The family of this 101-nucleotide RNA from Dioscorea zingiberensis is "Small nucleolar RNA R30/Z108". The base pairs follow the family's consensus structure, which was predicted with PFOLD. For this family Rfam cites "Experimental RNomics. Identification of 140 Candidates for Small Non-Messenger RNAs in the Plant Arabidopsis thaliana" (Marker et al., Curr Biol, 2002). From the family's description: snoR30 is a C/D box small nucleolar RNA which acts as a methylation guide for 18S ribosomal RNA in plants.
[Rfam]
RNA sequence: GAGUGAUGCGAUGAGGAUAAAAGAGCUCCCUCUUCUGAUUAGAUCAUGAGGACGCUUGCUGGCAUGAAUCGAACCAAUUAUCAAUCGCCACCACUGAGCAU
Numbered sequence: 001g002a003g004u005g006a007u008g009c010g011a012u013g014a015g016g017a018u019a020a021a022a023g024a025g026c027u028c029c030c031u032c033u034u035c036u037g038a039u040u041a042g043a044u045c046a047u048g049a050g051g052a053c054g055c056u057u058g059c060u061g062g063c064a065u066g067a068a069u070c071g072a073a074c075c076a077a078u079u080a081u082c083a084a085u086c087g088c089c090a091c092c093a094c095u096g097a098g099c100a101u
Stems, first nucleotide, its partner, number of pairs: 006101004